The family of this 264-nucleotide sequence from Reticulibacter mediterranei is "HNH endonuclease-associated RNA and ORF (HEARO) RNA". The source organism's lineage runs through Bacteria, Bacillati, Chloroflexota, Reticulibacteraceae and Reticulibacter.
RNA sequence: GUCACGGAUCCCGGCAUGAAUGCCGAGGCUGGCAGGCACCCGGCAUCGGGAGUGUGCCUGCCCGAACAUGACCAGACCCAACCACCAGCGGCUGAUGCGUGCAUCCAGGCUGAUGGGGCUACGUUCUCAGGAAGCGUUUGAGUUCCUACCAGUGGAUGCGAGGCCAGUCUGCUGCUCUAGAACUGCUCGGUGAAACGGAGGGUGGGUAUAACUCAGUGCCGAGCAGAAAGUACCGCCUGAGAACUUCGUCGAGGCCACCCUUAC
Numbered sequence: 001g002u003c004a005c006g007g008a009u010c011c012c013g014g015c016a017u018g019a020a021u022g023c024c025g026a027g028g029c030u031g032g033c034a035g036g037c038a039c040c041c042g043g044c045a046u047c048g049g050g051a052g053u054g055u056g057c058c059u060g061c062c063c064g065a066a067c068a069u070g071a072c073c074a075g076a077c078c079c080a081a082c083c084a085c086c087a088g089c090g091g092c093u094g095a096u097g098c099g100u101g102c103a104u105c106c107a108g109g110c111u112g113a114u115g116g117g118g119c120u121a122c123g124u125u126c127u128c129a130g131g132a133a134g135c136g137u138u139u140g141a142g143u144u145c146c147u148a149c150c151a152g153u154g155g156a157u158g159c160g161a162g163g164c165c166a167g168u169c170u171g172c173u174g175c176u177c178u179a180g181a182a183c184u185g186c187u188c189g190g191u192g193a194a195a196c197g198g199a200g201g202g203u204g205g206g207u208a209u210a211a212c213u214c215a216g217u218g219c220c221g222a223g224c225a226g227a228a229a230g231u232a233c234c235g236c237c238u239g240a241g242a243a244c245u246u247c248g249u250c251g252a253g254g255c256c257a258c259c260c261u262u263a264c
Stems, first nucleotide, its partner, number of pairs: 001072004006067001010028002012025002015022002029043004075250003080120001082118002123244009144181002150174008158260001160258001162256004183226009195217002198214003202209002
The literature on the family includes a 2009 paper in Nature by Weinberg et al., "Exceptional structured noncoding RNAs revealed by bacterial metagenome analysis". The family's RNA type in Rfam is non-coding RNA gene.